[Rfam]
RNA sequence: UGAAAUCCCAAAGGGGAGUAGCGUCCGGAAUGUAUUCCGGAAACAAAGUCGUCAUUUCAUGGAUUGUAUCCAUCGGCUUUGUUGGCAUGCCUGAAUUCAUGUCU
Numbered sequence: 001u002g003a004a005a006u007c008c009c010a011a012a013g014g015g016g017a018g019u020a021g022c023g024u025c026c027g028g029a030a031u032g033u034a035u036u037c038c039g040g041a042a043a044c045a046a047a048g049u050c051g052u053c054a055u056u057u058c059a060u061g062g063a064u065u066g067u068a069u070c071c072a073u074c075g076g077c078u079u080u081g082u083u084g085g086c087a088u089g090c091c092u093g094a095a096u097u098c099a100u101g102u103c104u
Stems, first nucleotide, its partner, number of pairs: 025040003042083010059073005